[Rfam]
The family of this 119-nucleotide sequence from Syntrophomonas zehnderi is "Molybdenum/Tungsten riboswitch aptamer (Moco RNA motif)". Pairs were carried over by alignment from the consensus structure, which is taken from published work. The family has 160 seed sequences and 1,248 matches in Rfam 15.1. The source organism's lineage runs through Bacteria, Bacillati, Syntrophomonadaceae, Syntrophomonas and Syntrophomonas zehnderi. It scores 65 bits against the family's covariance model.
RNA sequence: UAUAAAUAUUUUUUCCGAACUUAAGGGCCUAAAGUAUAAUUCCAUGGUUCUAAAGUCAUUGGGUACGUUAGGAAACUAGCAUGCCUCCCAUUGUGGAAAGGAGAAGCCAUACCAAAGGA
Numbered sequence: 001u002a003u004a005a006a007u008a009u010u011u012u013u014u015c016c017g018a019a020c021u022u023a024a025g026g027g028c029c030u031a032a033a034g035u036a037u038a039a040u041u042c043c044a045u046g047g048u049u050c051u052a053a054a055g056u057c058a059u060u061g062g063g064u065a066c067g068u069u070a071g072g073a074a075a076c077u078a079g080c081a082u083g084c085c086u087c088c089c090a091u092u093g094u095g096g097a098a099a100g101g102a103g104a105a106g107c108c109a110u111a112c113c114a115a116a117g118g119a
Stems, first nucleotide, its partner, number of pairs: 006110001011105006019056004024051006034042001036040001061086005067080005087096002